[Rfam]
RNA sequence: GCCCUGCCACUGCUCGAGGCGAUCUAGAGACCAUGGCAGGGACGGGGGACCCAGAAGUGGGCGCUGCUCGCAGCGUCCUUGGGGUGAAGCCGCGCGGAUCACGGUCCGACGGCCGGGUGUUCUUCUCCUACCCGAACCCGACAGCUAACCUCGCAGGCGUCUUUGGAGAGAAUAU
Numbered sequence: 001g002c003c004c005u006g007c008c009a010c011u012g013c014u015c016g017a018g019g020c021g022a023u024c025u026a027g028a029g030a031c032c033a034u035g036g037c038a039g040g041g042a043c044g045g046g047g048g049a050c051c052c053a054g055a056a057g058u059g060g061g062c063g064c065u066g067c068u069c070g071c072a073g074c075g076u077c078c079u080u081g082g083g084g085u086g087a088a089g090c091c092g093c094g095c096g097g098a099u100c101a102c103g104g105u106c107c108g109a110c111g112g113c114c115g116g117g118u119g120u121u122c123u124u125c126u127c128c129u130a131c132c133c134g135a136a137c138c139c140g141a142c143a144g145c146u147a148a149c150c151u152c153g154c155a156g157g158c159g160u161c162u163u164u165g166g167a168g169a170g171a172a173u174a175u
Stems, first nucleotide, its partner, number of pairs: 002041008043153005052081002082139003090112003115133004
RNA: c-di-AMP riboswitch aptamer (ydaO/yuaA leader)
Organism: Sanguibacter antarcticus